[Rfam]
RNA sequence: UGGGUCUGUCGCAACUGGCGUAUGGACGGCCCCUCGGGUGCCGCCCCAGGAUGGCUCACCAUCAGGGAGUGACAAGCACCUUCGAGAUGGAGGCGGAUUCGGCCGCGCGCCUGGGCUGGAACG
Numbered sequence: 001u002g003g004g005u006c007u008g009u010c011g012c013a014a015c016u017g018g019c020g021u022a023u024g025g026a027c028g029g030c031c032c033c034u035c036g037g038g039u040g041c042c043g044c045c046c047c048a049g050g051a052u053g054g055c056u057c058a059c060c061a062u063c064a065g066g067g068a069g070u071g072a073c074a075a076g077c078a079c080c081u082u083c084g085a086g087a088u089g090g091a092g093g094c095g096g097a098u099u100c101g102g103c104c105g106c107g108c109g110c111c112u113g114g115g116c117u118g119g120a121a122c123g
Stems, first nucleotide, its partner, number of pairs: 004077002007074006015066002017111005051062004100118005